[Rfam]
RNA sequence: AUAGUCUGGUUUCUCUUGAGAUCAUAUAAAUCUUUCACCUUUUACUAAAUAUUUCCAUGGAGAGGAACAGUUAAGAGUUUUUAACUCAUUUUUUUAAGAGAAUAAUUUUUUUUU
Numbered sequence: 001a002u003a004g005u006c007u008g009g010u011u012u013c014u015c016u017u018g019a020g021a022u023c024a025u026a027u028a029a030a031u032c033u034u035u036c037a038c039c040u041u042u043u044a045c046u047a048a049a050u051a052u053u054u055c056c057a058u059g060g061a062g063a064g065g066a067a068c069a070g071u072u073a074a075g076a077g078u079u080u081u082u083a084a085c086u087c088a089u090u091u092u093u094u095u096a097a098g099a100g101a102a103u104a105a106u107u108u109u110u111u112u113u114u
Stems, first nucleotide, its partner, number of pairs: 003078001005076002009068009019058001028054004033049003099114004
RNA: U5 spliceosomal RNA